[Rfam]
RNA sequence: CUGACUGCUCUGAACUCCAGUUCCCGGUGAGACUCUGGGGACCCAGACUCAUUUGUGGAGAAACUGGACUGUCUGGCAGCGGGAGGA
Dot-bracket structure: ((..((((((((.(((((((((((..(((((..(((((....))))))))))....)))...))))))..)).))).)))))..)).

The record is an 87-nucleotide RNA sequence from Cnephaeus nilssonii, which matches "mir-9230 microRNA precursor family" in Rfam. The organism belongs to Cnephaeus, within Eukaryota. The family's consensus secondary structure was predicted with RNAalifold. Rfam 15.1 lists 859 matches to the family in 7 species.